Shown here is a 76-nucleotide sequence from Crocodylus porosus, a member of the family "Mammalian CPEB3 ribozyme". On this family, see Salehi-Ashtiani et al., Science 2006: "A genomewide search for ribozymes reveals an HDV-like sequence in the human CPEB3 gene". Lineage of the source: Eukaryota > Vertebrata > Gnathostomata > Sauropsida > Crocodylus. It scores 50 bits against the family's covariance model.

RNA sequence: GGUUGCAAGUUUGAGUCCAUAGCAGAAGUAUUCAUGGUACAGUCUGUCUGAUUCCAGUGAAUCUGAGAAUUCUGCU
Dot-bracket structure: ............[[..[...((((((((((.......))).]]]...(.(((((....))))).)....)))))))